A member of the RNA family "ZMP/ZTP riboswitch aptamer (pfl RNA motif)" from Caproicibacterium amylolyticum, 80 nucleotides long. Pairs were carried over by alignment from the consensus structure, which is taken from published work.

[Rfam]
RNA sequence: UAGCAGCCAUACAACUGACGGAAGUGGAGUAAACCACAUGAAGUAUGGCGAAGGAAAUGCCGACCGUCUGGGCGAAAACC
Numbered sequence: 001u002a003g004c005a006g007c008c009a010u011a012c013a014a015c016u017g018a019c020g021g022a023a024g025u026g027g028a029g030u031a032a033a034c035c036a037c038a039u040g041a042a043g044u045a046u047g048g049c050g051a052a053g054g055a056a057a058u059g060c061c062g063a064c065c066g067u068c069u070g071g072g073c074g075a076a077a078a079c080c
Stems, first nucleotide, its partner, number of pairs: 006049007015040001017068005024037004058074004